[Rfam]
RNA sequence: AGCUCUGCUCCGGGGUGCAUCCGACAAGAGAUGCUGAGACGACCAAUGGAUGGGUGAACCAGGUCGAACCCGAGAACUUGAACCGGCUAGUACCGGCGUAAGGAGAGCUGCACAGGCCCGC
Number, nucleotide and partner (000 for none) at each position: 001a000002g000003c000004u000005c000006u000007g108008c107009u106010c105011c072012g071013g070014g069015g000016u066017g034018c033019a032020u031021c030022c000023g000024a000025c000026a000027a000028g000029a000030g021031a020032u019033g018034c017035u000036g000037a000038g000039a000040c000041g065042a064043c063044c062045a000046a000047u000048g000049g000050a000051u000052g000053g000054g000055u000056g000057a000058a000059c000060c000061a000062g044063g043064u042065c041066g016067a000068a000069c014070c013071c012072g011073a000074g000075a000076a000077c102078u101079u100080g099081a000082a000083c096084c095085g094086g093087c000088u000089a000090g000091u000092a000093c086094c085095g084096g083097c000098g000099u080100a079101a078102g077103g000104a000105g010106a009107g008108c007109u000110g000111c000112a000113c000114a000115g000116g000117c000118c000119c000120g000121c000